[Rfam]
RNA sequence: CCAUACAAGUCGGGGAUGUAGCGGGUCCUUGUACCUGAAAUCCGCUUUAGCAGGGAUGAUACCAAUUUUGAGGGUAAUUCUGGUGUUCACGCCAUGCUGUAUUGAUGUUGAGAAAGUAGUCCUAUAUUGUAGAAAUUCAGCGAAACAUGUCAGGCUGGGAACGGAGCAGCAUUAAGUUGAGAUUUCUAGGUUUAUGGGGUAGCUAUUUUUGAGUUAAUAUAGUAUGAAACCAAUGUUGGAGUUAUUCGAUUAAUUGGUGUAUGG
Number, nucleotide and partner (000 for none) at each position: 001c264002c263003a262004u261005a260006c259007a258008a000009g057010u056011c055012g030013g029014g028015g027016a026017u025018g000019u023020a000021g000022c000023g019024g000025g017026u016027c015028c014029u013030u012031g000032u000033a000034c054035c053036u052037g051038a000039a000040a000041u000042c000043c000044g000045c000046u000047u000048u000049a000050g000051c037052a036053g035054g034055g011056a010057u009058g000059a000060u000061a000062c257063c256064a255065a254066u253067u252068u000069u000070g000071a000072g247073g246074g245075u244076a243077a000078u241079u240080c239081u238082g237083g236084u235085g234086u233087u232088c000089a000090c000091g000092c000093c226094a225095u224096g223097c222098u221099g000100u000101a218102u217103u000104g215105a214106u213107g000108u000109u000110g000111a000112g210113a209114a208115a207116g206117u205118a204119g203120u202121c198122c197123u196124a195125u194126a193127u190128u189129g000130u188131a187132g186133a185134a184135a000136u181137u180138c179139a178140g177141c176142g000143a000144a000145a000146c000147a172148u171149g170150u169151c000152a000153g000154g000155c164156u163157g162158g000159g000160a000161a000162c157163g156164g155165a000166g000167c000168a000169g150170c149171a148172u147173u000174a000175a000176g141177u140178u139179g138180a137181g136182a000183u000184u134185u133186c132187u131188a130189g128190g127191u000192u000193u126194a125195u124196g123197g122198g121199g000200u000201a000202g120203c119204u118205a117206u116207u115208u114209u113210u112211g000212a000213g106214u105215u104216a000217a102218u101219a000220u000221a098222g097223u096224a095225u094226g093227a000228a000229a000230c000231c000232a087233a086234u085235g084236u083237u082238g081239g080240a079241g078242u000243u076244a075245u074246u073247c072248g000249a000250u000251u000252a067253a066254u065255u064256g063257g062258u007259g006260u005261a004262u003263g002264g001